This 116-nucleotide sequence from Anguilla anguilla belongs to the Rfam family "U5 spliceosomal RNA". Rfam describes the family as follows. U5 RNA is a component of both types of known spliceosome. On this family, see Zwieb, Nucleic Acids Res 1997: "The uRNA database". Rfam links the family to the GO terms spliceosomal tri-snRNP complex assembly and U5 snRNP. The organism belongs to Anguilla, within Eukaryota. The family has 180 seed sequences and 28,527 matches in Rfam 15.1.
RNA sequence: GUGCUCGGGUUUCUCUUCAUCACGCACAAAUCUUUCGCCUUUACUAAAGAUUUCCGUGGAGAGGAACACUCCUGAGUUUGUGCUAUUUUUGGAUGCUCCGUCCGCCGGACGGGGCG
Numbered sequence: 001g002u003g004c005u006c007g008g009g010u011u012u013c014u015c016u017u018c019a020u021c022a023c024g025c026a027c028a029a030a031u032c033u034u035u036c037g038c039c040u041u042u043a044c045u046a047a048a049g050a051u052u053u054c055c056g057u058g059g060a061g062a063g064g065a066a067c068a069c070u071c072c073u074g075a076g077u078u079u080g081u082g083c084u085a086u087u088u089u090u091g092g093a094u095g096c097u098c099c100g101u102c103c104g105c106c107g108g109a110c111g112g113g114g115c116g
Stems, first nucleotide, its partner, number of pairs: 003077004009067011028053008095115006